[Rfam]
RNA sequence: CGGGUAGACAGACCAGCCCCGAUUGAAGUCUGGUCUUACAGUUAAAAAGGUAAUAACAAUCAUG
Numbered sequence: 001c002g003g004g005u006a007g008a009c010a011g012a013c014c015a016g017c018c019c020c021g022a023u024u025g026a027a028g029u030c031u032g033g034u035c036u037u038a039c040a041g042u043u044a045a046a047a048a049g050g051u052a053a054u055a056a057c058a059a060u061c062a063u064g
Base pairs, nucleotide, nucleotide: 001021002020003019004018010036011035012034013033014032015031016030
RNA: DUF2815 RNA